[Rfam]
RNA sequence: UUGCCUUAAACUAAUGAGUAAGGAAAACAAAGCAAGCAGUGGGAGCUGCUUGCAGCACUCAUUCUGAUGUGCAAGAAUUUUUUAAGGGGUUAUAGGCUGGCCUUGAGCAGACGCUGCUUACUUAUGCAGAACUCUCAAAGGCGGGCCUCCC
Numbered sequence: 001u002u003g004c005c006u007u008a009a010a011c012u013a014a015u016g017a018g019u020a021a022g023g024a025a026a027a028c029a030a031a032g033c034a035a036g037c038a039g040u041g042g043g044a045g046c047u048g049c050u051u052g053c054a055g056c057a058c059u060c061a062u063u064c065u066g067a068u069g070u071g072c073a074a075g076a077a078u079u080u081u082u083u084a085a086g087g088g089g090u091u092a093u094a095g096g097c098u099g100g101c102c103u104u105g106a107g108c109a110g111a112c113g114c115u116g117c118u119u120a121c122u123u124a125u126g127c128a129g130a131a132c133u134c135u136c137a138a139a140g141g142c143g144g145g146c147c148u149c150c151c
Stems, first nucleotide, its partner, number of pairs: 004023005032053008055072004089151001094148005100142001103138001105136003114129004
RNA: U12 minor spliceosomal RNA
Organism: Vigna radiata